[Rfam]
The family of this 228-nucleotide RNA is "raiA RNA". The sequence is in the family's curated seed alignment.
RNA sequence: UCUUUCCAGGUCUGUGGUUGCGGAUUUUCCUAGUCCAAGGCAGAUGCGGUCAAAAGGAUCCACGUAAGCUAUCGGUUCUCCGAAGCGAGCAUGGCGCAUCCUAGAGGUAAGACGUACCGUUCGGGUUUUAUGCGACAUAGGGUUGCACGAACGAGAGGACGAUGUCCGCGUUGCGGGCUUGGUUCCAGUGCGCGAGUGUGGGGGCAAAGACCAGGUCAGCUGGAAGGG
Numbered sequence: 001u002c003u004u005u006c007c008a009g010g011u012c013u014g015u016g017g018u019u020g021c022g023g024a025u026u027u028u029c030c031u032a033g034u035c036c037a038a039g040g041c042a043g044a045u046g047c048g049g050u051c052a053a054a055a056g057g058a059u060c061c062a063c064g065u066a067a068g069c070u071a072u073c074g075g076u077u078c079u080c081c082g083a084a085g086c087g088a089g090c091a092u093g094g095c096g097c098a099u100c101c102u103a104g105a106g107g108u109a110a111g112a113c114g115u116a117c118c119g120u121u122c123g124g125g126u127u128u129u130a131u132g133c134g135a136c137a138u139a140g141g142g143u144u145g146c147a148c149g150a151a152c153g154a155g156a157g158g159a160c161g162a163u164g165u166c167c168g169c170g171u172u173g174c175g176g177g178c179u180u181g182g183u184u185c186c187a188g189u190g191c192g193c194g195a196g197u198g199u200g201g202g203g204g205c206a207a208a209g210a211c212c213a214g215g216u217c218a219g220c221u222g223g224a225a226g227g228g
Stems, first nucleotide, its partner, number of pairs: 001228009012219003015213005037199001039197001040050001043100006059094002072082001092206001113192005118153005157185004164178002167175003
Dot-bracket structure: (((((((((..((((((((.................(.([..((((((.]........((...........(.........).........[))))))))............((((((((((..........................)))))...((((...((.(((...))).))...))))..)))))....).)......]..)))))...))))))))))))

By type it is a riboswitch.